[Rfam]
RNA sequence: ACUUCAACUCGUAACUGGCGUUGGGUGGAUCACCACCGGGGAGCGAAAACCGACAUUCCACCGCAGACCGCGCGCCUGGGUUUGCGGA
Numbered sequence: 001a002c003u004u005c006a007a008c009u010c011g012u013a014a015c016u017g018g019c020g021u022u023g024g025g026u027g028g029a030u031c032a033c034c035a036c037c038g039g040g041g042a043g044c045g046a047a048a049a050c051c052g053a054c055a056u057u058c059c060a061c062c063g064c065a066g067a068c069c070g071c072g073c074g075c076c077u078g079g080g081u082u083u084g085c086g087g088a
Stems, first nucleotide, its partner, number of pairs: 003052001009046004015040002017076005025036004065083005